[Rfam]
Proteobacterial sRNA sX8: an 83-nucleotide sequence from Achromobacter sp. AONIH1.
It is annotated as a small RNA.
RNA sequence: CUUCACUGAUUCAUGCAGUGGAAUAAAAGCGUUGGAAAUCAAAGACUUGGUGCUCUAGUGCUUGUCUCGUCUCCCGCUCCAAA
Numbered sequence: 001c002u003u004c005a006c007u008g009a010u011u012c013a014u015g016c017a018g019u020g021g022a023a024u025a026a027a028a029g030c031g032u033u034g035g036a037a038a039u040c041a042a043a044g045a046c047u048u049g050g051u052g053c054u055c056u057a058g059u060g061c062u063u064g065u066c067u068c069g070u071c072u073c074c075c076g077c078u079c080c081a082a083a
Stems, first nucleotide, its partner, number of pairs: 002022007029079001033076003037072001040069001044066003051060003
NCBI's taxonomy places the organism under Bacteria, Betaproteobacteria, Burkholderiales, Alcaligenaceae, Achromobacter.
The base pairs follow the family's consensus structure, which was predicted with CMfinder.